[Rfam]
RNA sequence: UUAACUCUUCAGGGUAUGGUGAGGAGAUUUAGAUUAAAUCUCUAAUUCCACAGACCGAUGGUUAUAGUCCACGAGCCAAUGCUUAAAUGCUGGAGGCUGAGCUGAUGAAAUUUCAACACCGACGGUAGAGUCCGGAAGAAAGAAGAGGAAU
Numbered sequence: 001u002u003a004a005c006u007c008u009u010c011a012g013g014g015u016a017u018g019g020u021g022a023g024g025a026g027a028u029u030u031a032g033a034u035u036a037a038a039u040c041u042c043u044a045a046u047u048c049c050a051c052a053g054a055c056c057g058a059u060g061g062u063u064a065u066a067g068u069c070c071a072c073g074a075g076c077c078a079a080u081g082c083u084u085a086a087a088u089g090c091u092g093g094a095g096g097c098u099g100a101g102c103u104g105a106u107g108a109a110a111u112u113u114c115a116a117c118a119c120c121g122a123c124g125g126u127a128g129a130g131u132c133c134g135g136a137a138g139a140a141a142g143a144a145g146a147g148g149a150a151u
Stems, first nucleotide, its partner, number of pairs: 005147006017052002054131002056121002059071003067119002075097003101117001103115003123134003